[Rfam]
RNA sequence: GCCUGGUCCAAGUGCAGUGGCGUUUAUGACUAAUUGAUCGCAACCGGUUAUAGAUUCCUUUGUUCCUUCUCCACUCCCACUGCUUCACUAGACUAGCCUUAA
Number, nucleotide and partner (000 for none) at each position: 001g098002c000003c096004u095005g094006g093007u092008c091009c000010a000011a089012g000013u000014g086015c000016a081017g080018u079019g078020g077021c000022g076023u000024u000025u000026a000027u000028g064029a063030c062031u000032a060033a059034u000035u000036g000037a000038u000039c000040g000041c000042a000043a000044c000045c000046g000047g000048u000049u000050a000051u000052a000053g000054a000055u000056u000057c000058c000059u033060u032061u000062g030063u029064u028065c000066c000067u000068u000069c000070u000071c000072c000073a000074c000075u000076c022077c020078c019079a018080c017081u016082g000083c000084u000085u000086c014087a000088c000089u011090a000091g008092a007093c006094u005095a004096g003097c000098c001099u000100u000101a000102a000
The record is a 102-nucleotide sequence from Prolemur simus, which matches "Y RNA" in Rfam. Rfam's curators write: Y RNAs are components of the Ro ribonucleoprotein particle (Ro RNP), in association with Ro60 and La proteins. The Y RNAs and Ro60 and La proteins are well conserved, but the function of the Ro RNP is not known. In humans the RNA component can be one of four small RNAs -- hY1, hY3, hY4 and hY5. These small RNAs are predicted to fold into a conserved secondary structure containing three stem structures. The largest of the four, hY1, contains an additional hairpin. This family includes a significant number of annotated pseudogenes and the model is expected to discriminate poorly between real and Y RNA related pseudogenes. Rfam 15.1 lists 26,986 matches to the family in 650 species.